[Rfam]
RNA sequence: UUCGUAUUUAGAAAUGGCACUGGAAGAAUUCACGGGUUGAUUUUUAAUAGUCCCGUGUUCUCUCCGUACCAUCACUUAUACGUU
Numbered sequence: 001u002u003c004g005u006a007u008u009u010a011g012a013a014a015u016g017g018c019a020c021u022g023g024a025a026g027a028a029u030u031c032a033c034g035g036g037u038u039g040a041u042u043u044u045u046a047a048u049a050g051u052c053c054c055g056u057g058u059u060c061u062c063u064c065c066g067u068a069c070c071a072u073c074a075c076u077u078a079u080a081c082g083u084u
Stems, first nucleotide, its partner, number of pairs: 003082005010076002014072004019067001022064002024061001026060002031057005
RNA: mir-263 microRNA precursor family
Organism: Polypedilum vanderplanki